About this RNA
The record is a 138-nucleotide RNA, which matches "TPP riboswitch aptamer (THI element)" in Rfam. The family's consensus secondary structure is taken from published work. It scores 56 bits against the family's covariance model.

RNA sequence: CGAAUCAGCGAGGGGCGCCCUCUUUGUUCCCACUGCGUGCUCGUAAGAGGAGAAGCGGAUGGGACGAAUGGCUGAGACGUUUACCCUUAGCACCUGAUCCAGAUAAUGCUGGCGGAGGGACUGCUGUGUUCAACCUUC
Numbered sequence: 001c002g003a004a005u006c007a008g009c010g011a012g013g014g015g016c017g018c019c020c021u022c023u024u025u026g027u028u029c030c031c032a033c034u035g036c037g038u039g040c041u042c043g044u045a046a047g048a049g050g051a052g053a054a055g056c057g058g059a060u061g062g063g064a065c066g067a068a069u070g071g072c073u074g075a076g077a078c079g080u081u082u083a084c085c086c087u088u089a090g091c092a093c094c095u096g097a098u099c100c101a102g103a104u105a106a107u108g109c110u111g112g113c114g115g116a117g118g119g120a121c122u123g124c125u126g127u128g129u130u131c132a133a134c135c136u137u138c
Stems, first nucleotide, its partner, number of pairs: 006126005011087004017072003021068001093118003099112004